[Rfam]
RNA sequence: CUCGUUGCCCGGGACGAGACGAAAUGUGGCCGCCUCGCGGCUGAAUCGCAAG
Numbered sequence: 001c002u003c004g005u006u007g008c009c010c011g012g013g014a015c016g017a018g019a020c021g022a023a024a025u026g027u028g029g030c031c032g033c034c035u036c037g038c039g040g041c042u043g044a045a046u047c048g049c050a051a052g
Stems, first nucleotide, its partner, number of pairs: 001018005020048003028042005
RNA: eL15-Euryarchaeota ribosomal protein leader